[Rfam]
RNA sequence: AGUAAGAAUAGAGGUGCAGAAACCAUCAGUACUUAUGUAGAGGAGAAUGAGCUCCAAAGAAACAUAAGGAAAGGGGAAUUUGCCGAAGUGGAUGGAGACUCAUCUCCUGAAGCUGGUUCUGUUAUUUAAUAAAUUCAGGACUGUCAUAUAGGAAACUAUAUGGGGGGCUAUUCUUUUG
Numbered sequence: 001a002g003u004a005a006g007a008a009u010a011g012a013g014g015u016g017c018a019g020a021a022a023c024c025a026u027c028a029g030u031a032c033u034u035a036u037g038u039a040g041a042g043g044a045g046a047a048u049g050a051g052c053u054c055c056a057a058a059g060a061a062a063c064a065u066a067a068g069g070a071a072a073g074g075g076g077a078a079u080u081u082g083c084c085g086a087a088g089u090g091g092a093u094g095g096a097g098a099c100u101c102a103u104c105u106c107c108u109g110a111a112g113c114u115g116g117u118u119c120u121g122u123u124a125u126u127u128a129a130u131a132a133a134u135u136c137a138g139g140a141c142u143g144u145c146a147u148a149u150a151g152g153a154a155a156c157u158a159u160a161u162g163g164g165g166g167g168c169u170a171u172u173c174u175u176u177u178g
Stems, first nucleotide, its partner, number of pairs: 006173006016083005023076002032068007087114003094107005115142007124134003144163007
The family of this 178-nucleotide RNA sequence from Terrihalobacillus insolitus is "Lysine riboswitch aptamer". Lineage of the source: Bacteria > Bacillati > Bacillota > Bacillaceae > Terrihalobacillus. It scores 118 bits against the family's covariance model.